RNA sequence: UGAUAUAGGUGUCAAAAUUCCAAAAUGCGUGCAUGCGUGCAUGCUAAGCAUUUUGAAUUUAUGACCCGAACAAGCAUGAGGAAAUAGCAAUUUACGAAGUAAAUUAGCGGUUUCCGAAUGAUUGUAGAAUUGCGAGAAUGACGAAAGUCAUGGAGCAAUUCGUAUAUCA
Numbered sequence: 001u002g003a004u005a006u007a008g009g010u011g012u013c014a015a016a017a018u019u020c021c022a023a024a025a026u027g028c029g030u031g032c033a034u035g036c037g038u039g040c041a042u043g044c045u046a047a048g049c050a051u052u053u054u055g056a057a058u059u060u061a062u063g064a065c066c067c068g069a070a071c072a073a074g075c076a077u078g079a080g081g082a083a084a085u086a087g088c089a090a091u092u093u094a095c096g097a098a099g100u101a102a103a104u105u106a107g108c109g110g111u112u113u114c115c116g117a118a119u120g121a122u123u124g125u126a127g128a129a130u131u132g133c134g135a136g137a138a139u140g141a142c143g144a145a146a147g148u149c150a151u152g153g154a155g156c157a158a159u160u161c162g163u164a165u166a167u168c169a
Stems, first nucleotide, its partner, number of pairs: 001169007011065003016059003021055008030046001031044005070125004075120003080115004087108002089105007127161007138151004
A member of the RNA family "Clostridiales-1 RNA" from Butyrivibrio sp. INlla14, 169 nucleotides long. It is annotated as a small RNA. Rfam 15.1 lists 1,172 matches to the family in 137 species. It scores 115 bits against the family's covariance model.